[Rfam]
The family of this 117-nucleotide sequence from Fulvivirga lutea is "SAM riboswitch aptamer (S box leader)".

RNA sequence: CUCUUAUCAAGAAAGGCAGAGGGACAUGGCCCUGUGAAGCCUUGGCAACCACCACUCAUUUAUUUGAGGGAAAGGUGCUAAAUCCAUCCUGACGAAUACUGUCAGGAGAGAUAAGUC
Numbered sequence: 001c002u003c004u005u006a007u008c009a010a011g012a013a014a015g016g017c018a019g020a021g022g023g024a025c026a027u028g029g030c031c032c033u034g035u036g037a038a039g040c041c042u043u044g045g046c047a048a049c050c051a052c053c054a055c056u057c058a059u060u061u062a063u064u065u066g067a068g069g070g071a072a073a074g075g076u077g078c079u080a081a082a083u084c085c086a087u088c089c090u091g092a093c094g095a096a097u098a099c100u101g102u103c104a105g106g107a108g109a110g111a112u113a114a115g116u117c
Base pairs, nucleotide, nucleotide: 003115004114005113006112007111008110013043014042015041016040017039021032022031023030026087027086028085029084044079045078046077047076049075050074052070053069083109088106089105090104091103092102093101